[Rfam]
RNA sequence: CUAUUUCAUUUAAAUUUUUGUAACCUUACAUAUUUAAUAGGAGAAACCGUCGCCCUAGAUUUAAUUAUCUUGGAAAAAAUCGGGUGAAUUGUCAAGAAUAGGUUAAAUAGACCCAACUUGCAGCGAAGCUUAAUUCAACAUCUAAGAAAAUUAAGAACGUUCAACGACUAGAUAGUGAGUAAUGUUAACAAUAAUCUAUCCACGAGCGCCCGAAAAUCUGCAUUUUGUAUAAAAUGGAUUUAUGACAUAGUCUAAACCAUUAUGUAAAUAAUGG
Numbered sequence: 001c002u003a004u005u006u007c008a009u010u011u012a013a014a015u016u017u018u019u020g021u022a023a024c025c026u027u028a029c030a031u032a033u034u035u036a037a038u039a040g041g042a043g044a045a046a047c048c049g050u051c052g053c054c055c056u057a058g059a060u061u062u063a064a065u066u067a068u069c070u071u072g073g074a075a076a077a078a079a080u081c082g083g084g085u086g087a088a089u090u091g092u093c094a095a096g097a098a099u100a101g102g103u104u105a106a107a108u109a110g111a112c113c114c115a116a117c118u119u120g121c122a123g124c125g126a127a128g129c130u131u132a133a134u135u136c137a138a139c140a141u142c143u144a145a146g147a148a149a150a151u152u153a154a155g156a157a158c159g160u161u162c163a164a165c166g167a168c169u170a171g172a173u174a175g176u177g178a179g180u181a182a183u184g185u186u187a188a189c190a191a192u193a194a195u196c197u198a199u200c201c202a203c204g205a206g207c208g209c210c211c212g213a214a215a216a217u218c219u220g221c222a223u224u225u226u227g228u229a230u231a232a233a234a235u236g237g238a239u240u241u242a243u244g245a246c247a248u249a250g251u252c253u254a255a256a257c258c259a260u261u262a263u264g265u266a267a268a269u270a271a272u273g274g
Stems, first nucleotide, its partner, number of pairs: 004023002007020002080213004085208002090122002093120004101113004123160002130153001134148003164253001166252005216239005223232002259272005
This 274-nucleotide RNA sequence from Smittium simulii belongs to the Rfam family "Group I catalytic intron". Its family is annotated with Group I intron splicing in the Gene Ontology. The literature on the family includes a 1990 paper in Annu Rev Biochem by Cech, "Self-splicing of group I introns". A search with the family's covariance model found it, with a score of 81 bits. The family's consensus secondary structure is taken from published work. Rfam describes the family as follows. Group I catalytic introns are large self-splicing ribozymes.